rpsB sRNA: a 101-nucleotide sequence from Phyllobacterium sp. YR531.
For this family Rfam cites "Identification of candidate structured RNAs in the marine organism 'Candidatus Pelagibacter ubique'" (Meyer et al., BMC Genomics, 2009).
The family's consensus secondary structure is taken from published work.

RNA sequence: CACACACGGGAUUUGGGUUGAUAUCGGGAGAAAUCCGAUAUGGCCUCCGGUGGCGGGUUUCCCGCCUCUUCCCGUGGAGGUUCAACCGGAAAAGGAAAAUA
Numbered sequence: 001c002a003c004a005c006a007c008g009g010g011a012u013u014u015g016g017g018u019u020g021a022u023a024u025c026g027g028g029a030g031a032a033a034u035c036c037g038a039u040a041u042g043g044c045c046u047c048c049g050g051u052g053g054c055g056g057g058u059u060u061c062c063c064g065c066c067u068c069u070u071c072c073c074g075u076g077g078a079g080g081u082u083c084a085a086c087c088g089g090a091a092a093a094g095g096a097a098a099a100u101a
Stems, first nucleotide, its partner, number of pairs: 001079001003077001005076007015045002025037002028035001052066006